RNA sequence: UAGGACAACACGCUGAAUCUGCACGCGUGCAGUACGGGGGAUCUGAGUCCGCAAGGACGUGGGGUGAAUCGCCGUCAGGCGUAGGGUUGCUCUCGACCCGAACCCGUCAACUAACCUCGGAAGCGAAAGGGAGGUUUU
Number, nucleotide and partner (000 for none) at each position: 001u000002a000003g000004g000005a000006c000007a000008a000009c000010a000011c125012g124013c123014u122015g000016a000017a000018u000019c032020u031021g030022c029023a028024c000025g000026c000027g000028u023029g022030c021031a020032g019033u000034a000035c119036g118037g117038g116039g115040g000041a000042u000043c000044u061045g060046a000047g000048u000049c000050c000051g000052c000053a000054a000055g000056g000057a000058c000059g000060u045061g044062g105063g104064g103065u000066g000067a000068a000069u000070c081071g080072c079073c078074g000075u000076c000077a000078g073079g072080c071081g070082u000083a000084g099085g098086g097087u096088u000089g000090c000091u000092c000093u000094c000095g000096a087097c086098c085099c084100g000101a000102a000103c064104c063105c062106g000107u000108c000109a000110a000111c000112u000113a000114a000115c039116c038117u037118c036119g035120g000121a000122a014123g013124c012125g011126a000127a000128a000129g000130g000131g000132a000133g000134g000135u000136u000137u000138u000